[Rfam]
RNA: FMN riboswitch aptamer (RFN element)
RNA sequence: CGACGUCUUCAGGGCGGGGUGCAAUUCCCCACCGGCGGUAGGUCGCACGGCCCCGGUCGUGCCACAAGCCCGCGAGCGCUUCCCGACGCCUCAGGCAUCGGCAAGGUCAGCAGAUCCGGUCCAAUGCCGGAGCCGACGGUCAUAGUCCGGAUGAAAGAAGACGGCG
Numbered sequence: 001c002g003a004c005g006u007c008u009u010c011a012g013g014g015c016g017g018g019g020u021g022c023a024a025u026u027c028c029c030c031a032c033c034g035g036c037g038g039u040a041g042g043u044c045g046c047a048c049g050g051c052c053c054c055g056g057u058c059g060u061g062c063c064a065c066a067a068g069c070c071c072g073c074g075a076g077c078g079c080u081u082c083c084c085g086a087c088g089c090c091u092c093a094g095g096c097a098u099c100g101g102c103a104a105g106g107u108c109a110g111c112a113g114a115u116c117c118g119g120u121c122c123a124a125u126g127c128c129g130g131a132g133c134c135g136a137c138g139g140u141c142a143u144a145g146u147c148c149g150g151a152u153g154a155a156a157g158a159a160g161a162c163g164g165c166g
Base pairs, nucleotide, nucleotide: 004163005162006161007160008159009158010157017029018028019027031146032145033135034134035073036072037071038070068133069132076111077110115131116130117129118128119127137149138148139147